[Rfam]
RNA sequence: UCGUCAGUGCGGUACAUCCUGACCUGCCCCCGCAGUGCGGGCAGCACGUGAUGAGCGGAGCGUGAUGAUGCGUGAUUACAGUCACGUGACGCGGGCCAGCAACACCCGCGGGCACCUCUCUGAC
Numbered sequence: 001u002c003g004u005c006a007g008u009g010c011g012g013u014a015c016a017u018c019c020u021g022a023c024c025u026g027c028c029c030c031c032g033c034a035g036u037g038c039g040g041g042c043a044g045c046a047c048g049u050g051a052u053g054a055g056c057g058g059a060g061c062g063u064g065a066u067g068a069u070g071c072g073u074g075a076u077u078a079c080a081g082u083c084a085c086g087u088g089a090c091g092c093g094g095g096c097c098a099g100c101a102a103c104a105c106c107c108g109c110g111g112g113c114a115c116c117u118c119u120c121u122g123a124c
Stems, first nucleotide, its partner, number of pairs: 024044003028041001030040004067085001070082002073078001086113002090110005

About this RNA:
U8 small nucleolar RNA: a 124-nucleotide RNA from Odontophorus gujanensis. Rfam links the family to the GO terms RNA processing and nucleolus. The organism belongs to Odontophorus, within Eukaryota. It is annotated as a C/D-box small nucleolar RNA.